[Rfam]
RNA sequence: GGAAAAGAUAGAGGUGCGGGCUUCAAGAGUAUUUUUUACCAGAUGGUGAGUGACAGGUAAACAAGAAAGGGGAGACUGCCGAAGGGAUGGAUUUGCACUCAAAAAUACAAUCUCUGGGAUAAUGGAUAAGAUGCAUUAUACUGUCACGAAUGUGGAGAGCUAUCUCAGGG
Numbered sequence: 001g002g003a004a005a006a007g008a009u010a011g012a013g014g015u016g017c018g019g020g021c022u023u024c025a026a027g028a029g030u031a032u033u034u035u036u037u038a039c040c041a042g043a044u045g046g047u048g049a050g051u052g053a054c055a056g057g058u059a060a061a062c063a064a065g066a067a068a069g070g071g072g073a074g075a076c077u078g079c080c081g082a083a084g085g086g087a088u089g090g091a092u093u094u095g096c097a098c099u100c101a102a103a104a105a106u107a108c109a110a111u112c113u114c115u116g117g118g119a120u121a122a123u124g125g126a127u128a129a130g131a132u133g134c135a136u137u138a139u140a141c142u143g144u145c146a147c148g149a150a151u152g153u154g155g156a157g158a159g160c161u162a163u164c165u166c167a168g169g170g
Stems, first nucleotide, its partner, number of pairs: 006165006016079004021074004032064002035061005083115006090108001091106004116142002119139006126132001144155004

The record is a 170-nucleotide RNA from Firmicutes bacterium CAG:227, which matches "Lysine riboswitch aptamer" in Rfam. Rfam links the family to the GO term lysine biosynthetic process.